[Rfam]
This 79-nucleotide sequence from Magallana gigas belongs to the Rfam family "Small nucleolar RNA SNORD35". The match comes from Rfam's covariance-model search (53 bits). From the family's description: U35 is a C/D box snoRNA located in intron 6 of ribosomal protein L13A and intron 3 of ribosomal protein S11 in humans and at homologous positions in mouse and chicken ribosomal protein genes. U35 guides the methylation of 2'-O-ribose sites in 28S rRNA. The family's consensus secondary structure was predicted with PFOLD. On this family, see Nicoloso et al., J Mol Biol 1996: "Intron-encoded, antisense small nucleolar RNAs: the characterization of nine novel species points to their direct role as guides for the 2'-O-ribose methylation of rRNAs". By type it is a C/D-box small nucleolar RNA.
RNA sequence: AUGCAAUGAUGUUUACUCACGAUGGUCUUCUGAUUUGAAUUCUGAAGACAAUGCCUUAUGGCUUUGCUGAGCAUAUUUG
Number, nucleotide and partner (000 for none) at each position: 001a074002u073003g072004c071005a000006a000007u000008g000009a000010u000011g000012u000013u000014u000015a000016c000017u000018c000019a000020c000021g000022a000023u000024g000025g000026u000027c000028u000029u000030c000031u000032g000033a000034u000035u000036u000037g000038a000039a000040u000041u000042c000043u000044g000045a000046a000047g000048a000049c000050a000051a000052u000053g000054c000055c000056u000057u000058a000059u000060g000061g000062c000063u000064u000065u000066g000067c000068u000069g000070a000071g004072c003073a002074u001075a000076u000077u000078u000079g000